This 102-nucleotide RNA from Lentibacillus sp. CBA3610 belongs to the Rfam family "Purine riboswitch aptamer".
[Rfam]
RNA sequence: AAAACUAUAAUUUUAUAGUUGCGUAUAGUUUGGGGAAUAUGGCCCAAGAGUCUCUACCGGACCACCGUAAAUGGUCCGACUACGCAGGAUUGAGUCAUCAUG
Numbered sequence: 001a002a003a004a005c006u007a008u009a010a011u012u013u014u015a016u017a018g019u020u021g022c023g024u025a026u027a028g029u030u031u032g033g034g035g036a037a038u039a040u041g042g043c044c045c046a047a048g049a050g051u052c053u054c055u056a057c058c059g060g061a062c063c064a065c066c067g068u069a070a071a072u073g074g075u076c077c078g079a080c081u082a083c084g085c086a087g088g089a090u091u092g093a094g095u096c097a098u099c100a101u102g
Stems, first nucleotide, its partner, number of pairs: 019087007029049003033045003058078007

NCBI's taxonomy places the organism under Bacteria, Bacillati, Bacillota, Caryophanales, Lentibacillus. Pairs were carried over by alignment from the consensus structure, which is taken from published work.